[Rfam]
RNA sequence: CUUGAGGGAGCCGAGCCACAGCGGUUCGGCCCGGUCCUGCCCGUACGUGGCGAGCAGCGCUCUGGCCUC
Numbered sequence: 001c002u003u004g005a006g007g008g009a010g011c012c013g014a015g016c017c018a019c020a021g022c023g024g025u026u027c028g029g030c031c032c033g034g035u036c037c038u039g040c041c042c043g044u045a046c047g048u049g050g051c052g053a054g055c056a057g058c059g060c061u062c063u064g065g066c067c068u069c
Stems, first nucleotide, its partner, number of pairs: 014026004031065001032059002037054002041050003
A member of the RNA family "ASpks TB sRNA" from Nonomuraea phyllanthi, 69 nucleotides long.
The family has 77 seed sequences and 9,052 matches in Rfam 15.1.
It scores 64 bits against the family's covariance model.